[Rfam]
RNA: Group II catalytic intron D1-D4-6
RNA sequence: AGAGUCUUACGGUGAAGGAGUAGCGCACCACACCGGCCCCGAGUCAUGCGCCGGUGACCGUAAGGUUAAAGGCGAAGCGUUGACAGGGGUACGCACGGGCCAGCCAUUGAGCGGCGAAAUAUAUUUAUCCAGGACGCCGACGCUGUUAAGCGAAGCGGAAGGCCACACCGAGGGCGGCGGUAUGCGCGAGCCGCUCCUGGGUCCUGCGCCGUCGGAGACCC
Number, nucleotide and partner (000 for none) at each position: 001a000002g000003a000004g000005u000006c000007u000008u000009a000010c035011g034012g033013u032014g031015a000016a000017g029018g028019a000020g026021u189022a000023g187024c186025g000026c020027a000028c018029c017030a000031c014032a013033c012034c011035g010036g000037c089038c088039c087040c086041g000042a000043g084044u083045c082046a081047u079048g078049c074050g073051c072052c071053g000054g000055u068056g067057a066058c065059c064060g000061u000062a000063a000064g059065g058066u057067u056068a055069a000070a000071g052072g051073c050074g049075a000076a000077g000078c048079g047080u000081u046082g045083a044084c043085a000086g040087g039088g038089g037090u000091a000092c000093g000094c000095a000096c000097g000098g000099g000100c000101c000102a000103g000104c000105c000106a000107u000108u215109g213110a000111g212112c211113g210114g209115c208116g207117a000118a000119a000120u000121a000122u000123a000124u000125u000126u000127a000128u000129c000130c206131a205132g204133g203134a202135c201136g163137c162138c161139g000140a000141c157142g156143c155144u154145g000146u000147u000148a000149a000150g000151c000152g000153a000154a144155g143156c142157g141158g000159a000160a000161g138162g137163c136164c000165a000166c000167a000168c200169c199170g198171a000172g196173g195174g194175c193176g192177g191178c190179g000180g000181u000182a000183u000184g000185c000186g024187c023188g000189a021190g178191c177192c176193g175194c174195u173196c172197c000198u170199g169200g168201g135202u134203c133204c132205u131206g130207c116208g115209c114210c113211g112212u111213c109214g000215g108216a000217g000218a000219c000220c000221c000